[Rfam]
RNA sequence: UCUGGUGAGUUGUAGAUUUUUCUUAUGCGGUGAAUCCCCCUUUGCGGCGGGGCGUCAGUCGAAAUAGUUAAUGUUCCUCGCGAAUCAUAUUGACUGUGGUAUGGUUCACCGGGAGGCACCCGGCACCGCUAUUUUAUAAAGUGAAAUUCACCGUCUAUGGUUUAGUGCGGUGGUUUUUCAC
Numbered sequence: 001u002c003u004g005g006u007g008a009g010u011u012g013u014a015g016a017u018u019u020u021u022c023u024u025a026u027g028c029g030g031u032g033a034a035u036c037c038c039c040c041u042u043u044g045c046g047g048c049g050g051g052g053c054g055u056c057a058g059u060c061g062a063a064a065u066a067g068u069u070a071a072u073g074u075u076c077c078u079c080g081c082g083a084a085u086c087a088u089a090u091u092g093a094c095u096g097u098g099g100u101a102u103g104g105u106u107c108a109c110c111g112g113g114a115g116g117c118a119c120c121c122g123g124c125a126c127c128g129c130u131a132u133u134u135u136a137u138a139a140a141g142u143g144a145a146a147u148u149c150a151c152c153g154u155c156u157a158u159g160g161u162u163u164a165g166u167g168c169g170g171u172g173g174u175u176u177u178u179c180a181c
Base pairs, nucleotide, nucleotide: 010139011138012137027129028128029127030126031125032124037052038051039050040049076080082107083106084105085104087102088101089100109123110122111121112120113119141181142180143179144178150171151170152169153168154167